[Rfam]
Rfam assigns this 129-nucleotide sequence from Pan troglodytes to the family "Small nucleolar RNA ACA64". It is annotated as an H/ACA-box small nucleolar RNA.
RNA sequence: GUUGGUUGAAAAUCACCCCCGGUUUUGGCCGUGGCCGCGGGUGAAAUUCGGCGCCCAAGAGCCUCCGGGGGCCUCAGCUCACCGCGUGCUGCCGCCAUGUGCGGCGGUGAAACCCAGGCCCCGACAGGG
Numbered sequence: 001g002u003u004g005g006u007u008g009a010a011a012a013u014c015a016c017c018c019c020c021g022g023u024u025u026u027g028g029c030c031g032u033g034g035c036c037g038c039g040g041g042u043g044a045a046a047u048u049c050g051g052c053g054c055c056c057a058a059g060a061g062c063c064u065c066c067g068g069g070g071g072c073c074u075c076a077g078c079u080c081a082c083c084g085c086g087u088g089c090u091g092c093c094g095c096c097a098u099g100u101g102c103g104g105c106g107g108u109g110a111a112a113c114c115c116a117g118g119c120c121c122c123g124a125c126a127g128g129g
Stems, first nucleotide, its partner, number of pairs: 005052006013044004021036004068122001070120005079110005087101003
Overview: The sequence is in the family's curated seed alignment.